Background: The record is a 93-nucleotide sequence from Alligator mississippiensis, which matches "Small nucleolar RNA U83B" in Rfam.
RNA sequence: CUUGUUCUGUGAUGAGGUCAUGGAAUACACGCUGGCCACAGCGUCUGAUACCUAUGAGGAUUCAUUCCAUGCUGCCUUCCUUCUGAGAACAGU
Dot-bracket structure: .((((...................................................................................)))).
On this family, see Jady and Kiss, Nucleic Acids Res 2000: "Characterisation of the U83 and U84 small nucleolar RNAs: two novel 2'-O-ribose methylation guide RNAs that lack complementarities to ribosomal RNAs".
About the family: U83B belongs to the C/D family of snoRNAs.
It scores 89 bits against the family's covariance model.
Rfam 15.1 lists 966 matches to the family in 652 species.
It is annotated as a C/D-box small nucleolar RNA.
Rfam links the family to the GO terms nucleolus and RNA processing.
Pairs were carried over by alignment from the consensus structure.